[Rfam]
RNA sequence: ACCGCCGGGGAGCGCUGCGACAGGGUUCCCCCUGCCAGGCCCGGCGGCACGGCCAACUCACUGCAACGGCGCUCACGAACC
Numbered sequence: 001a002c003c004g005c006c007g008g009g010g011a012g013c014g015c016u017g018c019g020a021c022a023g024g025g026u027u028c029c030c031c032c033u034g035c036c037a038g039g040c041c042c043g044g045c046g047g048c049a050c051g052g053c054c055a056a057c058u059c060a061c062u063g064c065a066a067c068g069g070c071g072c073u074c075a076c077g078a079a080c081c
Stems, first nucleotide, its partner, number of pairs: 002047007021034005
RNA: SAH (S-adenosyl-L-homocysteine) riboswitch aptamer